[Rfam]
RNA: HDV ribozyme from F. prausnitzii
Organism: Diatraea saccharalis
RNA sequence: GGGGUGCGAAGUCUAGCUACCUCCACGUGGUGCACCCUGGGCAACGUGGCCGCUCAAAGUAUCUUUGAGCCGCCACGGCUAAAGCUAGA
Numbered sequence: 001g002g003g004g005u006g007c008g009a010a011g012u013c014u015a016g017c018u019a020c021c022u023c024c025a026c027g028u029g030g031u032g033c034a035c036c037c038u039g040g041g042c043a044a045c046g047u048g049g050c051c052g053c054u055c056a057a058a059g060u061a062u063c064u065u066u067g068a069g070c071c072g073c074c075a076c077g078g079c080u081a082a083a084g085c086u087a088g089a
Stems, first nucleotide, its partner, number of pairs: 001038007019031003045077005